This 120-nucleotide RNA from Nitratireductor pacificus belongs to the Rfam family "Alphaproteobacterial ar14". Taxonomically the source falls in Nitratireductor pacificus (Bacteria, Pseudomonadota, Alphaproteobacteria, Hyphomicrobiales). From the family's description: Smr14C2 was renamed NfeR1 (Nodule Formation Efficiency RNA) highly expressed in salt stress and during the symbiotic interaction on legume roots. The family's RNA type in Rfam is small RNA. Rfam links the family to the GO term biological process involved in symbiotic interaction. On this family, see del Val et al., RNA Biol 2012: "A survey of sRNA families in alpha-proteobacteria".
[Rfam]
RNA sequence: AAGGCUUCCCUGAAGGUCACCUCCUCCCGACCUUCACGGAACGACCGGCACCUCCUCCUCCCGGAUGUCGGUCACCCAAAACGACACCCGCCGAACCUCCUCCCUCGGCGGGUGUUGUUU
Number, nucleotide and partner (000 for none) at each position: 001a000002a000003g000004g000005c000006u000007u040008c039009c038010c000011u036012g035013a034014a033015g032016g031017u030018c000019a000020c000021c000022u000023c000024c000025u000026c000027c000028c000029g000030a017031c016032c015033u014034u013035c012036a011037c000038g009039g008040a007041a000042c000043g073044a072045c071046c070047g069048g068049c067050a066051c000052c064053u000054c000055c000056u000057c000058c000059u000060c000061c000062c000063g000064g052065a000066u050067g049068u048069c047070g046071g045072u044073c043074a000075c000076c000077c000078a000079a000080a000081a000082c000083g000084a115085c114086a113087c112088c111089c110090g109091c108092c107093g106094a105095a000096c000097c000098u000099c000100c000101u000102c000103c000104c000105u094106c093107g092108g091109c090110g089111g088112g087113u086114g085115u084116u000117g000118u000119u000120u000